[Rfam]
The record is a 126-nucleotide sequence from Dissostichus mawsoni, which matches "Small nucleolar RNA SNORA47" in Rfam. A search with the family's covariance model found it, with a score of 57 bits. The family's consensus secondary structure was predicted with WAR. By type it is an H/ACA-box small nucleolar RNA. Gene Ontology terms of the family: nucleolus and RNA processing.
Nucleotides: 126
Stems, first nucleotide, its partner, number of pairs: 002057005015044004020038006077118002081114002084111001086109001092105004
Number, partner (000 for none) and nucleotide at each position: 001000u002057g003056g004055a005054g006053g007000a008000c009000u010000g011000a012000g013000a014000a015044a016043g017042u018041u019000g020038a021037g022036c023035a024034g025033c026000c027000u028000g029000c030000a031000g032000u033025g034024c035023u036022g037021c038020u039000a040000u041018a042017a043016c044015u045000g046000g047000u048000u049000a050000u051000a052000g053006c054005c055004u056003c057002c058000u059000a060000a061000a062000g063000u064000a065000a066000c067000u068000c069000a070000c071000u072000a073000a074000c075000c076000a077118c078117u079000c080000a081114a082113u083000u084111c085000a086109g087000u088000g089000g090000c091000u092105c093104u094103g095102u096000c097000a098000u099000a100000u101000a102095g103094c104093a105092g106000a107000g108000c109086u110000g111084g112000u113082g114081u115000g116000u117078a118077g119000u120000g121000u122000g123000u124000u125000u126000g